Small nucleolar RNA SNORA8: a 130-nucleotide RNA from Pelusios castaneus.
Its Rfam clan is "SNORA8 clan".
The family's RNA type in Rfam is H/ACA-box small nucleolar RNA.
Taxonomically the source falls in Pelusios (Eukaryota, Deuterostomia, Sarcopterygii, Pelomedusidae).
It scores 44 bits against the family's covariance model.
The family's consensus secondary structure was predicted with RNAfold.
Rfam 15.1 lists 1,490 matches to the family in 610 species.
RNA sequence: UGCAAUGCGAGGUACCUGCAUCCAACAGUGUAGUUCUGAUGGGAUGGUCUGAAAACAGUGUUAAAGUAAUUCAGCAUUGGCAUCAUUGGCUUUCAUGCUGCUGUGCCUGUGCUUGAAGUGCGAAAAAAUU
Numbered sequence: 001u002g003c004a005a006u007g008c009g010a011g012g013u014a015c016c017u018g019c020a021u022c023c024a025a026c027a028g029u030g031u032a033g034u035u036c037u038g039a040u041g042g043g044a045u046g047g048u049c050u051g052a053a054a055a056c057a058g059u060g061u062u063a064a065a066g067u068a069a070u071u072c073a074g075c076a077u078u079g080g081c082a083u084c085a086u087u088g089g090c091u092u093u094c095a096u097g098c099u100g101c102u103g104u105g106c107c108u109g110u111g112c113u114u115g116a117a118g119u120g121c122g123a124a125a126a127a128a129u130u
Stems, first nucleotide, its partner, number of pairs: 002061003006057002017052001019046005024040001026038003066121003070117001071115001073113002079107005